Rfam assigns this 68-nucleotide RNA from Pyrobaculum arsenaticum to the family "Pyrobaculum sRNA 201".
A reference for the family is Bernick et al. (2012), "Discovery of Pyrobaculum small RNA families with atypical pseudouridine guide RNA features", RNA.
It is one of the family's seed sequences.
Its family is annotated with RNA processing in the Gene Ontology.
About the family: Has weak conservation of the canonical pseudouridylation guide sRNA features among the Pyrobaculum species.
RNA sequence: GCCCCUGGCGUGGGGUGUCGAGUCGCCGUGUGGGCGGCUGUGAAAACGCCCCCUCCGCGGGGCGUACA
Numbered sequence: 001g002c003c004c005c006u007g008g009c010g011u012g013g014g015g016u017g018u019c020g021a022g023u024c025g026c027c028g029u030g031u032g033g034g035c036g037g038c039u040g041u042g043a044a045a046a047c048g049c050c051c052c053c054u055c056c057g058c059g060g061g062g063c064g065u066a067c068a
Stems, first nucleotide, its partner, number of pairs: 001063005012052007024037001025035003